Record summary
The record is a 68-nucleotide sequence from Equus caballus, which matches "Small nucleolar RNA SNORD77" in Rfam. The match comes from Rfam's covariance-model search (81 bits). NCBI's taxonomy places the organism under Eukaryota, Deuterostomia, Amniota, Equidae, Equus.

[Rfam]
RNA sequence: AUACUAUGAUGGUUGCUGAGUUCAGCAGAUUGAAUCGUGAAGAAAUAUACCAUUUGUCUAAUGUAUCU
Number, nucleotide and partner (000 for none) at each position: 001a066002u065003a064004c063005u000006a038007u037008g036009a035010u034011g000012g000013u028014u027015g026016c025017u000018g000019a000020g000021u000022u000023c000024a000025g016026c015027a014028g013029a000030u000031u000032g000033a000034a010035u009036c008037g007038u006039g000040a000041a000042g000043a055044a054045a053046u052047a000048u000049a000050c000051c000052a046053u045054u044055u043056g000057u000058c000059u000060a000061a000062u000063g004064u003065a002066u001067c000068u000

It is annotated as a C/D-box small nucleolar RNA.